RNA sequence: UACUAAGGUUCUUCGACUAAGAACGUGCACGUCCUGUGCACAACGUCGAAGUCACCGCAUCCUGCGGU
Numbered sequence: 001u002a003c004u005a006a007g008g009u010u011c012u013u014c015g016a017c018u019a020a021g022a023a024c025g026u027g028c029a030c031g032u033c034c035u036g037u038g039c040a041c042a043a044c045g046u047c048g049a050a051g052u053c054a055c056c057g058c059a060u061c062c063u064g065c066g067g068u
Base pairs, nucleotide, nucleotide: 011051012050013049014048015047016046017045026040027039028038029037030036054068055067056066057065058064
Bacillaceae-1 RNA: a 68-nucleotide sequence from Sporolactobacillus shoreae. NCBI's taxonomy places the organism under Bacteria, Bacillota, Bacilli, Sporolactobacillaceae, Sporolactobacillus.